The record is a 65-nucleotide RNA sequence from Anhinga anhinga, which matches "Selenocysteine insertion sequence 1" in Rfam. NCBI's taxonomy places the organism under Eukaryota, Metazoa, Sauropsida, Aequornithes, Anhinga. The incorporation of selenocysteine into a protein sequence is directed by an in-frame UGA codon (usually a stop codon) within the coding region of the mRNA. Selenoprotein mRNAs contain a conserved secondary structure in the 3' UTR that is required for the distinction of UGA stop from UGA selenocysteine. The selenocysteine insertion sequence (SECIS) is around 60 nt in length and adopts a hairpin structure which is sufficiently well-defined and conserved to act as a computational screen for selenoprotein genes. It is annotated as a cis-regulatory element.
[Rfam]
RNA sequence: GUGUGUUUAUGAAGAUUGCUAACAAAAGAGUAAUUAACUCAGUUGGCGUUCAGAUGCCGUCACAC
Dot-bracket structure: (((((........((.(((((((.....(((.....)))..))))))).)).........)))))